[Rfam]
RNA: Nuclear RNase P
RNA sequence: AUGGCUACAAGAUGGUAUCGGGAACCACUCAAAGGCACUCGUUGUCUCAUUUCAGUUCCCGGGAAGGUCUGAGAAAAGGUCCCGUCCUCUUCGGAGGCCGUACUGUCUAGAAGACGGACCUCUUCAAGAGGUGGUGCUGUACUAGAAACUUUCUGUGUCCCUUGGGCUAUGGGACACGAAGUUAGCCUCAUGUUUGGGGUUAGUGGAUCUCGCCCUUGGUGCGCAUUCGAACUACAGUGCCGGUGCCAGCACAUGCUGAGUGCGAUAACCGAAUAACACAAUUCAGACUACUCUGUGGCCAA
Numbered sequence: 001a002u003g004g005c006u007a008c009a010a011g012a013u014g015g016u017a018u019c020g021g022g023a024a025c026c027a028c029u030c031a032a033a034g035g036c037a038c039u040c041g042u043u044g045u046c047u048c049a050u051u052u053c054a055g056u057u058c059c060c061g062g063g064a065a066g067g068u069c070u071g072a073g074a075a076a077a078g079g080u081c082c083c084g085u086c087c088u089c090u091u092c093g094g095a096g097g098c099c100g101u102a103c104u105g106u107c108u109a110g111a112a113g114a115c116g117g118a119c120c121u122c123u124u125c126a127a128g129a130g131g132u133g134g135u136g137c138u139g140u141a142c143u144a145g146a147a148a149c150u151u152u153c154u155g156u157g158u159c160c161c162u163u164g165g166g167c168u169a170u171g172g173g174a175c176a177c178g179a180a181g182u183u184a185g186c187c188u189c190a191u192g193u194u195u196g197g198g199g200u201u202a203g204u205g206g207a208u209c210u211c212g213c214c215c216u217u218g219g220u221g222c223g224c225a226u227u228c229g230a231a232c233u234a235c236a237g238u239g240c241c242g243g244u245g246c247c248a249g250c251a252c253a254u255g256c257u258g259a260g261u262g263c264g265a266u267a268a269c270c271g272a273a274u275a276a277c278a279c280a281a282u283u284c285a286g287a288c289u290a291c292u293c294u295g296u297g298g299c300c301a302a
Base pairs, nucleotide, nucleotide: 002301003300004299007296008295009294013272015270018267020060021059022058023057024056033047034046035045036044037043069286070285071284072283073282079247081245103117104116105115106114107113118132119131120130121129122128134240135239136238137237138236139235140234156225157224158223